[Rfam]
RNA sequence: AAUUUAAUUUAAUUAACUCACACACAUAUCGACACAUACGCAGGAGUGUCCUUUUACUGGGCGGAGGUAUGGGGUAUGUGGACGCCUAAC
Numbered sequence: 001a002a003u004u005u006a007a008u009u010u011a012a013u014u015a016a017c018u019c020a021c022a023c024a025c026a027u028a029u030c031g032a033c034a035c036a037u038a039c040g041c042a043g044g045a046g047u048g049u050c051c052u053u054u055u056a057c058u059g060g061g062c063g064g065a066g067g068u069a070u071g072g073g074g075u076a077u078g079u080g081g082a083c084g085c086c087u088a089a090c
Stems, first nucleotide, its partner, number of pairs: 023080008035071005041064001048062004
Dot-bracket structure: ......................((((((((....(((((.(......((((.......)))).)..))))).))))))))..........

Rfam assigns this 90-nucleotide sequence from Candidatus Enterovibrio escicola to the family "t44 RNA". The family's RNA type in Rfam is small RNA. The family's consensus secondary structure was predicted with LocARNA. For this family Rfam cites "Transcriptome analysis of Escherichia coli using high-density oligonucleotide probe arrays" (Tjaden et al., Nucleic Acids Res, 2002). About the family: This family consists of a number of bacterial RNA genes of between 135 and 170 bases in length. NCBI's taxonomy places the organism under Bacteria, Pseudomonadati, Gammaproteobacteria, Vibrionaceae, Enterovibrio.